[Rfam]
RNA sequence: CCAGUUGACCGGGUGGCCGCUCCCCUUCGUGGGAGAGGAAAGUCCGGGCUCCAUUGAAACACGGUGCCGGGUAACGCCCGGCGAGGGCGACCUCAGGGAAAGUGCCACAGAAAGCAAACCGCCCCGGCUUGCCGGGGUAAGGGUGAAAGGGUGCGGUAAGAGCGCACCGGGCCGCUGGCAACAGGGGCCGCACGGUAAACCCCACCGGGAGCAAGACCAAAUAGGGACGACGCGGGGCUUGCCCCAGCCUGUUUCAAGGCCAGGUCGUCCGGGUUGGUUGCACGAGGCGUCCGGCAACGGACGUCACAGAUGAAUGGCCAUCGCGCCGAGGGGUUCGCAUCCUUCGGCCCUACAGAACCCGGCUUACAGGUCAACUGGCGUU
Dot-bracket structure: ((((((((((((((((((.(((((......)))))....[[[.[[[[[((((.........((((((((((.....)))))(((((....)))).)((...(((((............(((((((((....)))))))..)).......((((((.......))))))(((((.(((....))).)))).)..)))..)))))))))))))...((((......((((((..................(((.(.....).))).)))))).....))))......((((((((....))))))))..........)))))))...................................]]]]]]]].).))))))))))....
Numbered sequence: 001c002c003a004g005u006u007g008a009c010c011g012g013g014u015g016g017c018c019g020c021u022c023c024c025c026u027u028c029g030u031g032g033g034a035g036a037g038g039a040a041a042g043u044c045c046g047g048g049c050u051c052c053a054u055u056g057a058a059a060c061a062c063g064g065u066g067c068c069g070g071g072u073a074a075c076g077c078c079c080g081g082c083g084a085g086g087g088c089g090a091c092c093u094c095a096g097g098g099a100a101a102g103u104g105c106c107a108c109a110g111a112a113a114g115c116a117a118a119c120c121g122c123c124c125c126g127g128c129u130u131g132c133c134g135g136g137g138u139a140a141g142g143g144u145g146a147a148a149g150g151g152u153g154c155g156g157u158a159a160g161a162g163c164g165c166a167c168c169g170g171g172c173c174g175c176u177g178g179c180a181a182c183a184g185g186g187g188c189c190g191c192a193c194g195g196u197a198a199a200c201c202c203c204a205c206c207g208g209g210a211g212c213a214a215g216a217c218c219a220a221a222u223a224g225g226g227a228c229g230a231c232g233c234g235g236g237g238c239u240u241g242c243c244c245c246a247g248c249c250u251g252u253u254u255c256a257a258g259g260c261c262a263g264g265u266c267g268u269c270c271g272g273g274u275u276g277g278u279u280g281c282a283c284g285a286g287g288c289g290u291c292c293g294g295c296a297a298c299g300g301a302c303g304u305c306a307c308a309g310a311u312g313a314a315u316g317g318c319c320a321u322c323g324c325g326c327c328g329a330g331g332g333g334u335u336c337g338c339a340u341c342c343u344u345c346g347g348c349c350c351u352a353c354a355g356a357a358c359c360c361g362g363c364u365u366a367c368a369g370g371u372c373a374a375c376u377g378g379c380g381u382u
Stems, first nucleotide, its partner, number of pairs: 001378010011367001012322007020035005040365003044362005049211004062207005067081005082096001083094004097202002102200002104196003119142002121138007150168006169191001170189004175184003215279004225270006249263003253259001286305008